T-box leader: a 219-nucleotide RNA from Bacillus infantis. About the family: Uncharged tRNA acts as the effector for transcription antitermination of genes in the T-box leader family. By type it is a cis-regulatory leader. For this family Rfam cites "Interaction between the acceptor end of tRNA and the T box stimulates antitermination in the Bacillus subtilis tyrS gene: a new role for the discriminator base" (Grundy et al., J Bacteriol, 1994). A search with the family's covariance model found it, with a score of 135 bits.
Nucleotides: 219
Stems, first nucleotide, its partner, number of pairs: 007101002015096004026085006037076003051073006104128007130140003159173006179215003189212007
Number, partner (000 for none) and nucleotide at each position: 001000g002000c003000a004000a005000a006000a007101a008100c009000u010000a011000u012000g013000a014000u015096g016095a017094g018093g019000a020000a021000u022000a023000g024000u025000a026085a027084u028083g029082a030081u031080g032000u033000a034000g035000u036000u037076c038075c039074g040000c041000u042000c043000a044000u045000u046000a047000g048000a049000g050000a051073g052072c053071u054070g055069g056068c057000g058000g059000g060000a061000g062000g063000u064000g065000c066000a067000a068056g069055c070054c071053a072052g073051c074039c075038g076037g077000g078000a079000c080031u081030g082029u083028c084027a085026u086000g087000a088000a089000c090000u091000c092000g093018c094017c095016u096015u097000g098000g099000a100008g101007u102000u103000g104128c105127a106126g107125g108124u109123g110122u111000g112000a113000a114000c115000c116000a117000c118000a119000g120000u121000a122110a123109u124108g125107c126106c127105u128104g129000c130140c131139g132138u133000u134000u135000u136000c137000c138132g139131c140130g141000u142000u143000a144000a145000g146000g147000a148000u149000g150000a151000a152000u153000g154000a155000a156000g157000a158000g159173a160172g161171c162170g163169g164168c165000a166000a167000u168164g169163c170162c171161g172160c173159u174000a175000a176000u177000g178000u179215g180214g181213g182000u183000g184000g185000u186000a187000c188000c189212g190211c191210g192209g193208g194207a195206g196000a197000a198000u199000a200000c201000a202000u203000a204000u205000c206195c207194u208193c209192u210191c211190g212189u213181c214180c215179c216000u217000g218000u219000u